[Rfam]
Notes
This 355-nucleotide RNA sequence from Ruminococcaceae bacterium FB2012 belongs to the Rfam family "Bacterial RNase P class A".
RNA sequence: UCGGCAGGCUAUACGGCAGCGCAGACGUUUUAGUCUGUGAGGAAAGUCCGGGCACCGCAGAGCAGGAUAGCAGAUAACAUCUGCCGAGGGCGACCUCCGAGACAGUGCAACAGAAAUAUACCGCCGAUCUUCUUCAGAGGAUCUGGUAAGGGUGGAAAGGCGAGGUAAGAGCUCACCGGAGCGUCGGAGACGGCGCUGCCGUGUAAACCUUAUCCGGUGCAACGCCAAUGGCAGCCGAAAAGUCAAUGGCUGCUCGUCAGACUUCAGGCUGUAGGCGGCUAAAGCCGAUCGGCGACGGUCGGUUCAGAUAGAUUGCCGUACACGACAAAACCCGGCUUAUCGGUCGGCCGAUACU
Numbered sequence: 001u002c003g004g005c006a007g008g009c010u011a012u013a014c015g016g017c018a019g020c021g022c023a024g025a026c027g028u029u030u031u032a033g034u035c036u037g038u039g040a041g042g043a044a045a046g047u048c049c050g051g052g053c054a055c056c057g058c059a060g061a062g063c064a065g066g067a068u069a070g071c072a073g074a075u076a077a078c079a080u081c082u083g084c085c086g087a088g089g090g091c092g093a094c095c096u097c098c099g100a101g102a103c104a105g106u107g108c109a110a111c112a113g114a115a116a117u118a119u120a121c122c123g124c125c126g127a128u129c130u131u132c133u134u135c136a137g138a139g140g141a142u143c144u145g146g147u148a149a150g151g152g153u154g155g156a157a158a159g160g161c162g163a164g165g166u167a168a169g170a171g172c173u174c175a176c177c178g179g180a181g182c183g184u185c186g187g188a189g190a191c192g193g194c195g196c197u198g199c200c201g202u203g204u205a206a207a208c209c210u211u212a213u214c215c216g217g218u219g220c221a222a223c224g225c226c227a228a229u230g231g232c233a234g235c236c237g238a239a240a241a242g243u244c245a246a247u248g249g250c251u252g253c254u255c256g257u258c259a260g261a262c263u264u265c266a267g268g269c270u271g272u273a274g275g276c277g278g279c280u281a282a283a284g285c286c287g288a289u290c291g292g293c294g295a296c297g298g299u300c301g302g303u304u305c306a307g308a309u310a311g312a313u314u315g316c317c318g319u320a321c322a323c324g325a326c327a328a329a330a331c332c333c334g335g336c337u338u339a340u341c342g343g344u345c346g347g348c349c350g351a352u353a354c355u
Stems, first nucleotide, its partner, number of pairs: 001351005007345004011340001012320007020039007044338003048335005053219004060255004065215005070084005085099001086097004100210002105208002107204003121151002123147003127142006159177002162174003179199001180197007223277004235268002239264002247259004284303008